[Rfam]
RNA sequence: UGGGUCUUUUCAGCUCAACUCUCGGGGUCACAUACGAGUUCUCGGUAACUCCACGUGCAUUCAACCCUGGGAAAAGUCCCCAGGCCUAGGGCAGAAAGUGCCAGGACGUCACUCGUCCAUAUCUCGAGAAUUUCGCCAUUCCUGAGAAAAGAAGGGACACAUCCGACGUAAGUGGUAUUCUCGAGAACCGGCCAGAGCGCUCAGUAAUGGGUUAGGAAAGAAGUUCAACGUCUGAUUAACUUGGGCGGGGGGAAUUCGUCAUAAUGGGGCUUACUUCGAAGAGACCU
Numbered sequence: 001u002g003g004g005u006c007u008u009u010u011c012a013g014c015u016c017a018a019c020u021c022u023c024g025g026g027g028u029c030a031c032a033u034a035c036g037a038g039u040u041c042u043c044g045g046u047a048a049c050u051c052c053a054c055g056u057g058c059a060u061u062c063a064a065c066c067c068u069g070g071g072a073a074a075a076g077u078c079c080c081c082a083g084g085c086c087u088a089g090g091g092c093a094g095a096a097a098g099u100g101c102c103a104g105g106a107c108g109u110c111a112c113u114c115g116u117c118c119a120u121a122u123c124u125c126g127a128g129a130a131u132u133u134c135g136c137c138a139u140u141c142c143u144g145a146g147a148a149a150a151g152a153a154g155g156g157a158c159a160c161a162u163c164c165g166a167c168g169u170a171a172g173u174g175g176u177a178u179u180c181u182c183g184a185g186a187a188c189c190g191g192c193c194a195g196a197g198c199g200c201u202c203a204g205u206a207a208u209g210g211g212u213u214a215g216g217a218a219a220g221a222a223g224u225u226c227a228a229c230g231u232c233u234g235a236u237u238a239a240c241u242u243g244g245g246c247g248g249g250g251g252g253a254a255u256u257c258g259u260c261a262u263a264a265u266g267g268g269g270c271u272u273a274c275u276u277c278g279a280a281g282a283g284a285c286c287u
Stems, first nucleotide, its partner, number of pairs: 002287010014216002017213003022070007036051005074272003078269004090102004104118004120186001122184001126182006136175004154164003218259001220257003

A member of the RNA family "RNase MRP" from Hermetia illucens, 287 nucleotides long.
Rfam classes the family as a ribozyme.
From the family's description: RNase MRP is an enzymatically active ribonucleoprotein with two distinct roles in eukaryotes. In mitochondria it plays a direct role in the initiation of mitochondrial DNA replication. In the nucleus it is involved in precursor rRNA processing, where it cleaves the internal transcribed spacer 1 between 18S and 5.8S rRNAs. Despite distinct functions, RNase MRP has been shown to be evolutionarily related to RNase P. Like eukaryotic RNase P, RNase MRP is not catalytically active without associated protein subunits.
The base pairs follow the family's consensus structure, which is taken from published work.